RNA sequence: CAGUUGCCAUAACUCCGAGCUUAUCAGGCUAAGUUCUUCACGAAUAUGCGUGCGAAGCCAGUGACGUGGUGUCACCAGGGCAUAACCAGAAAUGGAUAGGCCUCCCGUAUUUGGAAAGGUGUUCAAUGGCGCAACAA
Numbered sequence: 001c002a003g004u005u006g007c008c009a010u011a012a013c014u015c016c017g018a019g020c021u022u023a024u025c026a027g028g029c030u031a032a033g034u035u036c037u038u039c040a041c042g043a044a045u046a047u048g049c050g051u052g053c054g055a056a057g058c059c060a061g062u063g064a065c066g067u068g069g070u071g072u073c074a075c076c077a078g079g080g081c082a083u084a085a086c087c088a089g090a091a092a093u094g095g096a097u098a099g100g101c102c103u104c105c106c107g108u109a110u111u112u113g114g115a116a117a118g119g120u121g122u123u124c125a126a127u128g129g130c131g132c133a134a135c136a137a
Stems, first nucleotide, its partner, number of pairs: 011123003015119002019058004025052002028049002033045004061075005078103004083098002086095003104114002
Shown here is a 137-nucleotide RNA sequence from Vibrio aquimaris, a member of the family "Molybdenum/Tungsten riboswitch aptamer (Moco RNA motif)". Its family is annotated with tungstate binding, molybdenum ion binding and regulation of gene expression in the Gene Ontology. The match comes from Rfam's covariance-model search (96 bits). Pairs were carried over by alignment from the consensus structure, which is taken from published work.